[Rfam]
RNA sequence: GAAGGAGACAUCCAAAGGGAUCGCAUUGAUCCAAGAUUAUUUUAGUUUUAAAUCUCUCUUUGCCUUCACAGAAUAUUUGGGAUCAUGCUAUCCCUUUGGAUUCUUCCUU
Numbered sequence: 001g002a003a004g005g006a007g008a009c010a011u012c013c014a015a016a017g018g019g020a021u022c023g024c025a026u027u028g029a030u031c032c033a034a035g036a037u038u039a040u041u042u043u044a045g046u047u048u049u050a051a052a053u054c055u056c057u058c059u060u061u062g063c064c065u066u067c068a069c070a071g072a073a074u075a076u077u078u079g080g081g082a083u084c085a086u087g088c089u090a091u092c093c094c095u096u097u098g099g100a101u102u103c104u105u106c107c108u109u
Stems, first nucleotide, its partner, number of pairs: 002109005010101012023088004028084005036077001
The record is a 109-nucleotide sequence from Lupinus angustifolius, which matches "mir-393 microRNA precursor family" in Rfam. The match comes from Rfam's covariance-model search (91 bits). The organism belongs to Lupinus, within Eukaryota. The base pairs follow the family's consensus structure. Its family is annotated with RISC complex and miRNA-mediated post-transcriptional gene silencing in the Gene Ontology.